[Rfam]
RNA sequence: AUAAAUGCAAUGAAGAGAAGAGUAAGUGUGCUCAAGCAUAACAGAGAACUCCAGCAGCUGAAAAUGGAGGAUGUAAUAGCCCACUGAACCAAGUCUUGGAGCAACGCAUAGGAAUUUCGUCUAGAUAUUGAUUAUGUGUCGGUUUCUCCCGUUAUCGAGAUAGAGUAUAAACAUUUGUUUCAUUAUGUCGUACUCGAAAAGGUUUCUGUGGUGACACAGGAAUAAACUGGGGUGGUACCGCGAACUUCUAAAUAUAAGGAGUCUCGUCCCUAAG
Numbered sequence: 001a002u003a004a005a006u007g008c009a010a011u012g013a014a015g016a017g018a019a020g021a022g023u024a025a026g027u028g029u030g031c032u033c034a035a036g037c038a039u040a041a042c043a044g045a046g047a048a049c050u051c052c053a054g055c056a057g058c059u060g061a062a063a064a065u066g067g068a069g070g071a072u073g074u075a076a077u078a079g080c081c082c083a084c085u086g087a088a089c090c091a092a093g094u095c096u097u098g099g100a101g102c103a104a105c106g107c108a109u110a111g112g113a114a115u116u117u118c119g120u121c122u123a124g125a126u127a128u129u130g131a132u133u134a135u136g137u138g139u140c141g142g143u144u145u146c147u148c149c150c151g152u153u154a155u156c157g158a159g160a161u162a163g164a165g166u167a168u169a170a171a172c173a174u175u176u177g178u179u180u181c182a183u184u185a186u187g188u189c190g191u192a193c194u195c196g197a198a199a200a201g202g203u204u205u206c207u208g209u210g211g212u213g214a215c216a217c218a219g220g221a222a223u224a225a226a227c228u229g230g231g232g233u234g235g236u237a238c239c240g241c242g243a244a245c246u247u248c249u250a251a252a253u254a255u256a257a258g259g260a261g262u263c264u265c266g267u268c269c270c271u272a273a274g
Base pairs, nucleotide, nucleotide: 007102008101015097016096017095018094025085026084027083028082030080037073038072039071049069050068051067052066053065105138106137107136108135109134110133111132140151141150142149202223203222204221205220206219207218208217229271230270231269232268240267241266242265243264
The record is a 274-nucleotide RNA sequence from Bacillus sp. FJAT-27916, which matches "T-box leader" in Rfam. The family has 48 seed sequences and 19,395 matches in Rfam 15.1. It scores 99 bits against the family's covariance model. It is annotated as a cis-regulatory leader. Uncharged tRNA acts as the effector for transcription antitermination of genes in the T-box leader family. T-boxes are found upstream of many aminoacyl-tRNA synthetase genes and some amino acid biosynthetic genes usually in Gram-positive bacteria. Lineage of the source: Bacteria > Bacilli > Caryophanales > Bacillaceae > Bacillus.